[Rfam]
RNA sequence: UCUGGCAAUGAUGACACACUUGCCCUCACUGAGAGCAGUGUCGGAUGAUGAGCCUCAACCCUGUGCUCGUAUGGGCUGAGCCAGA
Number, nucleotide and partner (000 for none) at each position: 001u085002c084003u083004g082005g081006c080007a000008a000009u000010g000011a000012u000013g000014a000015c000016a000017c000018a000019c000020u000021u000022g000023c000024c000025c000026u000027c000028a000029c000030u000031g000032a000033g000034a000035g000036c000037a000038g000039u000040g000041u000042c000043g000044g000045a000046u000047g000048a000049u000050g000051a000052g000053c000054c000055u000056c000057a000058a000059c000060c000061c000062u000063g000064u000065g000066c000067u000068c000069g000070u000071a000072u000073g000074g000075g000076c000077u000078g000079a000080g006081c005082c004083a003084g002085a001
Rfam assigns this 85-nucleotide RNA from Jacana jacana to the family "Small nucleolar RNA SNORD103/SNORD85".
The pairing is the family consensus, mapped onto this sequence.